[Rfam]
RNA sequence: UCGUGCUAAACGGGAAAGUAGCGGCGUCCUGUACCCUAAAUCCGCUAUAUAGGGGUUGAUGCCUUUAUGAGGUUUCCAAGUGUUUGCGGGACCUUUAGCGGCAAGUGGUGUUUGAAGUAUCUGGCGCCUGGAAAUCUUAAACUUCCGAACCUGGUCAGGGGGUGAAACCAGCAGCCAUAAGGAUGUCCCUGAGGUGUUCUAGGAAUUCCAGAUAUUAGCUAACUGCCAAUAAAACUCACAAACCGGAAAUCAAAUAAAGGUGCACGA
Numbered sequence: 001u002c003g004u005g006c007u008a009a010a011c012g013g014g015a016a017a018g019u020a021g022c023g024g025c026g027u028c029c030u031g032u033a034c035c036c037u038a039a040a041u042c043c044g045c046u047a048u049a050u051a052g053g054g055g056u057u058g059a060u061g062c063c064u065u066u067a068u069g070a071g072g073u074u075u076c077c078a079a080g081u082g083u084u085u086g087c088g089g090g091a092c093c094u095u096u097a098g099c100g101g102c103a104a105g106u107g108g109u110g111u112u113u114g115a116a117g118u119a120u121c122u123g124g125c126g127c128c129u130g131g132a133a134a135u136c137u138u139a140a141a142c143u144u145c146c147g148a149a150c151c152u153g154g155u156c157a158g159g160g161g162g163u164g165a166a167a168c169c170a171g172c173a174g175c176c177a178u179a180a181g182g183a184u185g186u187c188c189c190u191g192a193g194g195u196g197u198u199c200u201a202g203g204a205a206u207u208c209c210a211g212a213u214a215u216u217a218g219c220u221a222a223c224u225g226c227c228a229a230u231a232a233a234a235c236u237c238a239c240a241a242a243c244c245g246g247a248a249a250u251c252a253a254a255u256a257a258a259g260g261u262g263c264a265c266g267a
Base pairs, nucleotide, nucleotide: 001267002266003265004264005263006262009057010056011055012030013029014028015027019023034054035053036052037051038050062260063259064258065257066256067255068254071251072250073249074248075247082243083242084241085240086239088237089236090235094233095232097230100227101226102225105223106222107220108219109218117215118214119213120212121211122210123209124208127203128202129201130200131199132198136193137192138191139190141186142185144183145182146181152177153176154175155174160169161168
Dot-bracket structure: ((((((..(((((((...(...)...))))...(((((...........))))))))....(((((((..(((((......(((((.(((...((.(..(((..(((((.......((((((((..((((((...((((.((.(((.....((((....((......))....))))...))).))...))))....))))))....))))))))..))).)).)))..).)).))).)))))...)))))..))))))).))))))
This 267-nucleotide sequence from Candidatus Uabimicrobium amorphum belongs to the Rfam family "Bacterial large signal recognition particle RNA". Lineage of the source: Bacteria > Pseudomonadati > Candidatus Uabimicrobiia > Candidatus Uabimicrobiaceae > Candidatus Uabimicrobium. The family is grouped with related families in Rfam's "SRP clan". Rfam classes the family as a non-coding RNA gene. A reference for the family is Rosenblad et al. (2003), "SRPDB: Signal Recognition Particle Database", Nucleic Acids Res.